[Rfam]
RNA sequence: CUGCCGGGAUGAUCCCACCGAACUCUCUCUUGCCGACAGCCCGAUGGAGAAACCUCAAGGGGCUCUGAGCGGC
Dot-bracket structure: ((((................................................................)))).

Shown here is a 73-nucleotide sequence from Nipponia nippon, a member of the family "Small nucleolar RNA SNORD26".
Rfam links the family to the GO terms nucleolus and RNA processing.
It is annotated as a C/D-box small nucleolar RNA.
For this family Rfam cites "A small nucleolar RNA requirement for site-specific ribose methylation of rRNA in Xenopus" (Tycowski et al., Proc Natl Acad Sci U S A, 1996).